[Rfam]
RNA: Lysine riboswitch aptamer
Organism: Companilactobacillus tucceti
RNA sequence: AAAACAAAAAGAGGUCGCGACUGACAUUAUUAAACAAGUGAGUUCUUGCAAGAACAAUGAACUUGUUGAAAGGGAAUGUCGCCGAAGCGCUAGGUAUUGCAAUACUUAGUUCGCUGGGACGUACUAAUAAGAUGGUACGAACUGUCGCAGCAAAAUGUCGCUGCGUUGCGCUUAUGACAAA
Numbered sequence: 001a002a003a004a005c006a007a008a009a010a011g012a013g014g015u016c017g018c019g020a021c022u023g024a025c026a027u028u029a030u031u032a033a034a035c036a037a038g039u040g041a042g043u044u045c046u047u048g049c050a051a052g053a054a055c056a057a058u059g060a061a062c063u064u065g066u067u068g069a070a071a072g073g074g075a076a077u078g079u080c081g082c083c084g085a086a087g088c089g090c091u092a093g094g095u096a097u098u099g100c101a102a103u104a105c106u107u108a109g110u111u112c113g114c115u116g117g118g119a120c121g122u123a124c125u126a127a128u129a130a131g132a133u134g135g136u137a138c139g140a141a142c143u144g145u146c147g148c149a150g151c152a153a154a155a156u157g158u159c160g161c162u163g164c165g166u167u168g169c170g171c172u173u174a175u176g177a178c179a180a181a
Base pairs, nucleotide, nucleotide: 007175009173010172011171017082018081019080020079021078025074033067034066035065036064037063038062039061086115087114088113089112090109091108092107093106094105095104096103097102116143117142120139121138122137123136124135125134126133146165147164148163149162150161151160